Record summary:
This 276-nucleotide RNA from Nannospalax galili belongs to the Rfam family "Mason-Pfizer monkey virus packaging signal". The family's RNA type in Rfam is cis-regulatory element. NCBI's taxonomy places the organism under Eukaryota, Gnathostomata, Tetrapoda, Mammalia, Nannospalax. It scores 124 bits against the family's covariance model. Pairs were carried over by alignment from the consensus structure, which was predicted with PFOLD.

RNA sequence: UGGCACCCAACAUGGGGCCUGGAUACCGGGGGACAACGUGCGGGUCCGAUGACGAAAGAAGGGGUGCACACCCAAUUAAACAAUAGUUCGGAGACGUCGUGGUAGCCAGCUGUAACCGAGCCGACAGGUAAGUUGGUCGUUUAAUCAUGGGAAAAAAAUUGAGUUAACAUCAAAAAUAUGUAAUACAGUUAAGAAAAGCUUUACAGACAAGACGAGUAAAGGUUACAACUGAAGAUUUAUUUCAUUUCUUUGAUUUUGUGAAAGACAUCUGCCCAU
Numbered sequence: 001u002g003g004c005a006c007c008c009a010a011c012a013u014g015g016g017g018c019c020u021g022g023a024u025a026c027c028g029g030g031g032g033a034c035a036a037c038g039u040g041c042g043g044g045u046c047c048g049a050u051g052a053c054g055a056a057a058g059a060a061g062g063g064g065u066g067c068a069c070a071c072c073c074a075a076u077u078a079a080a081c082a083a084u085a086g087u088u089c090g091g092a093g094a095c096g097u098c099g100u101g102g103u104a105g106c107c108a109g110c111u112g113u114a115a116c117c118g119a120g121c122c123g124a125c126a127g128g129u130a131a132g133u134u135g136g137u138c139g140u141u142u143a144a145u146c147a148u149g150g151g152a153a154a155a156a157a158a159u160u161g162a163g164u165u166a167a168c169a170u171c172a173a174a175a176a177u178a179u180g181u182a183a184u185a186c187a188g189u190u191a192a193g194a195a196a197a198g199c200u201u202u203a204c205a206g207a208c209a210a211g212a213c214g215a216g217u218a219a220a221g222g223u224u225a226c227a228a229c230u231g232a233a234g235a236u237u238u239a240u241u242u243c244a245u246u247u248c249u250u251u252g253a254u255u256u257u258g259u260g261a262a263a264g265a266c267a268u269c270u271g272c273c274c275a276u
Base pairs, nucleotide, nucleotide: 006031007030008029013025014024037051038050039049088128089127090125095120099113100112101111102110137153140151141150142149143148160203161202162201163199164198165197211251212250214248215247216246220238221237222236223235224234261276264273266271